Rfam assigns this 600-nucleotide part of an RNA to the family "Bacterial large subunit ribosomal RNA".

[Rfam]
RNA sequence: AAUUCUCCGUGAAGAUGCGGAGUACCAACGGCUAGACGGUAAGACCCCGUGCACCUUUACUAUAGCUUCGCAGUGACAACCUUGAUCGAAUGUGUAGGCUAGGUGGGAGGUGGUGACACACAACGACCAAUCCUGAAAUACCACUCUUUCGUUAAAGGAUGCCUAACCUUAGCACCGAUCAUUCGUAGGUGGCGGGACACUGUGAGGUGGGUAGUUUUUCUGGGGCGGAUGCCUCCUAAAGAGUAACGGAGGUGUGCGAAGGUAGGCUCAAGCGUUGAUUCAGCUCGUGAGCGUAAUGGUAUAAGCCUGCCUGACUGUGAGACCUACUGGUCGAACAGAGACGAAAGUCGGCCAUAGUGAUCCGGGAGUCCCGUGUGGAAGGGCUCUCGCUCAACGGAUCAAAGGUACGCCGGGGAUAACAGGCUGAUGACUCCCAAGAGCUCUUAUCGACGGAGUCGUUUGGCACCUCGAUGUCGACUCAUCACAUCCUGGGGUUGAAGAAGGUCCCAAGGGUUCGGUUGUUCGCCGAUCAAAGUGGUACGUGAGUUGGGUUUAGAACGUCGUGAGACAGUUCGGUUCCUAUCUACCGUUGGUGUUAAA
Numbered sequence: 001a002a003u004u005c006u007c008c009g010u011g012a013a014g015a016u017g018c019g020g021a022g023u024a025c026c027a028a029c030g031g032c033u034a035g036a037c038g039g040u041a042a043g044a045c046c047c048c049g050u051g052c053a054c055c056u057u058u059a060c061u062a063u064a065g066c067u068u069c070g071c072a073g074u075g076a077c078a079a080c081c082u083u084g085a086u087c088g089a090a091u092g093u094g095u096a097g098g099c100u101a102g103g104u105g106g107g108a109g110g111u112g113g114u115g116a117c118a119c120a121c122a123a124c125g126a127c128c129a130a131u132c133c134u135g136a137a138a139u140a141c142c143a144c145u146c147u148u149u150c151g152u153u154a155a156a157g158g159a160u161g162c163c164u165a166a167c168c169u170u171a172g173c174a175c176c177g178a179u180c181a182u183u184c185g186u187a188g189g190u191g192g193c194g195g196g197a198c199a200c201u202g203u204g205a206g207g208u209g210g211g212u213a214g215u216u217u218u219u220c221u222g223g224g225g226c227g228g229a230u231g232c233c234u235c236c237u238a239a240a241g242a243g244u245a246a247c248g249g250a251g252g253u254g255u256g257c258g259a260a261g262g263u264a265g266g267c268u269c270a271a272g273c274g275u276u277g278a279u280u281c282a283g284c285u286c287g288u289g290a291g292c293g294u295a296a297u298g299g300u301a302u303a304a305g306c307c308u309g310c311c312u313g314a315c316u317g318u319g320a321g322a323c324c325u326a327c328u329g330g331u332c333g334a335a336c337a338g339a340g341a342c343g344a345a346a347g348u349c350g351g352c353c354a355u356a357g358u359g360a361u362c363c364g365g366g367a368g369u370c371c372c373g374u375g376u377g378g379a380a381g382g383g384c385u386c387u388c389g390c391u392c393a394a395c396g397g398a399u400c401a402a403a404g405g406u407a408c409g410c411c412g413g414g415g416a417u418a419a420c421a422g423g424c425u426g427a428u429g430a431c432u433c434c435c436a437a438g439a440g441c442u443c444u445u446a447u448c449g450a451c452g453g454a455g456u457c458g459u460u461u462g463g464c465a466c467c468u469c470g471a472u473g474u475c476g477a478c479u480c481a482u483c484a485c486a487u488c489c490u491g492g493g494g495u496u497g498a499a500g501a502a503g504g505u506c507c508c509a510a511g512g513g514u515u516c517g518g519u520u521g522u523u524c525g526c527c528g529a530u531c532a533a534a535g536u537g538g539u540a541c542g543u544g545a546g547u548u549g550g551g552u553u554u555a556g557a558a559c560g561u562c563g564u565g566a567g568a569c570a571g572u573u574c575g576g577u578u579c580c581u582a583u584c585u586a587c588c589g590u591u592g593g594u595g596u597u598a599a600a
Stems, first nucleotide, its partner, number of pairs: 005022005025593007034585003038580002046414004051410002053406005059215004066207007075163001077161002080158004085153001087151004092146001102145005109128003167195002173191004219229003231253006254395001256352002262310006268290002271285003274280001291300002315338004321332003340349003363389007371382002423464003427461001428458007438448002475550001476548004480542001481539005488513002491508006515529005556574004560569003
Dot-bracket structure: ....(((((........)))))..(((((((..(((.((......((((.(((((((.((((...(((((((..(.((.((((.(.((((.(.........(((((..(((..............)))............)))))).)))).).)))).)).)...((....((((...........))))..)).....)))))))....))))...(((.....))).((((((...........))))))(.((....((((((((.((((.....)..)))...))((......))....))))))....((((..(((......)))..)))).(((....))).))..........(((((((.((........))))))))).....)......)))))..))))))........(((.((((((((...((.......))...)))))))..))))..........(((((((((((..((.((((((......))))))...)).(((((.....))))).....)))))..)..)))).).....(((((((....))).))))....))..))).))))))).......
Overview
It scores 1958 bits against the family's covariance model.